[Rfam]
This 198-nucleotide sequence from Gordonia asplenii belongs to the Rfam family "Actinobacteria sRNA Ms_IGR-5". Pairs were carried over by alignment from the consensus structure.
RNA sequence: ACACAAGGAAGGAGGUGGUCUGAAGUUGUAUGACUUAGCGACACGUGAGGUGGUCAUCCGCUAGAACGGUCCAAGCUGCAAUUCGUUGCGCGCACAGUCGCUUUAGCGAAUUCCAGGUGACCACCCGACCCCCGUACCGCGGCCCCGUCAGGCCGCCUUCGGCUCCCCGUUUCGGGAGUGGUGCGGGGGUCGUCUCGU
Numbered sequence: 001a002c003a004c005a006a007g008g009a010a011g012g013a014g015g016u017g018g019u020c021u022g023a024a025g026u027u028g029u030a031u032g033a034c035u036u037a038g039c040g041a042c043a044c045g046u047g048a049g050g051u052g053g054u055c056a057u058c059c060g061c062u063a064g065a066a067c068g069g070u071c072c073a074a075g076c077u078g079c080a081a082u083u084c085g086u087u088g089c090g091c092g093c094a095c096a097g098u099c100g101c102u103u104u105a106g107c108g109a110a111u112u113c114c115a116g117g118u119g120a121c122c123a124c125c126c127g128a129c130c131c132c133c134g135u136a137c138c139g140c141g142g143c144c145c146c147g148u149c150a151g152g153c154c155g156c157c158u159u160c161g162g163c164u165c166c167c168c169g170u171u172u173c174g175g176g177a178g179u180g181g182u183g184c185g186g187g188g189g190u191c192g193u194c195u196c197g198u
Stems, first nucleotide, its partner, number of pairs: 014058006059108007067100004126192013139156006